[Rfam]
Annotation: This 97-nucleotide RNA from Isoptericola sp. CG 20/1183 belongs to the Rfam family "Bacterial small signal recognition particle RNA". The family's consensus secondary structure is taken from published work. A search with the family's covariance model found it, with a score of 66 bits. Rfam's curators write: The signal recognition particle (SRP) is a universally conserved ribonucleoprotein involved in the co-translational targeting of proteins to membranes.

RNA sequence: GCAGACCCCUCGUGCGGCACCAUCUCGCCGAACUCCCCCAGGGCCGGAAGGCAGCAAGGGUACGUGAGCUCUGGUGGGUGCGCGAGGGGUCCUUUGC
Numbered sequence: 001g002c003a004g005a006c007c008c009c010u011c012g013u014g015c016g017g018c019a020c021c022a023u024c025u026c027g028c029c030g031a032a033c034u035c036c037c038c039c040a041g042g043g044c045c046g047g048a049a050g051g052c053a054g055c056a057a058g059g060g061u062a063c064g065u066g067a068g069c070u071c072u073g074g075u076g077g078g079u080g081c082g083c084g085a086g087g088g089g090u091c092c093u094u095u096g097c
Base pairs, nucleotide, nucleotide: 004091005090006089007088008087009086010085011084012083013082014081015078018076019075020074021073022072024068025067026066027065028064035060036059037058043052044051045050
Source information
The organism belongs to Isoptericola, within Bacteria.